Source information
Rfam assigns this 176-nucleotide RNA from Felis catus to the family "Small nucleolar RNA SNORA81". NCBI's taxonomy places the organism under Eukaryota, Opisthokonta, Bilateria, Deuterostomia, Felis. Pairs were carried over by alignment from the consensus structure, which was predicted with WAR. Its family is annotated with nucleolus and RNA processing in the Gene Ontology. The family's RNA type in Rfam is H/ACA-box small nucleolar RNA.

RNA sequence: ACCUUCUUGUAUAAGCACUGUGCUAAAAUUACAGAACCUAAGAUUGUCUUAGUUUCUGUAGUAAUGCUAGCAGAGUACACACAAGAAGAAAAAUAACUGCACUAGAUUGUAAAGACUGGGGUGGACCUCUUUCUUAAUGUCCAGUGUCCUUUGUCUUAAGAUUUGGUGCUAUAUGU
Numbered sequence: 001a002c003c004u005u006c007u008u009g010u011a012u013a014a015g016c017a018c019u020g021u022g023c024u025a026a027a028a029u030u031a032c033a034g035a036a037c038c039u040a041a042g043a044u045u046g047u048c049u050u051a052g053u054u055u056c057u058g059u060a061g062u063a064a065u066g067c068u069a070g071c072a073g074a075g076u077a078c079a080c081a082c083a084a085g086a087a088g089a090a091a092a093a094u095a096a097c098u099g100c101a102c103u104a105g106a107u108u109g110u111a112a113a114g115a116c117u118g119g120g121g122u123g124g125a126c127c128u129c130u131u132u133c134u135u136a137a138u139g140u141c142c143a144g145u146g147u148c149c150u151u152u153g154u155c156u157u158a159a160g161a162u163u164u165g166g167u168g169c170u171a172u173a174u175g176u
Stems, first nucleotide, its partner, number of pairs: 018075002021072005028065004034056002038052006099169008118147001120145001122143004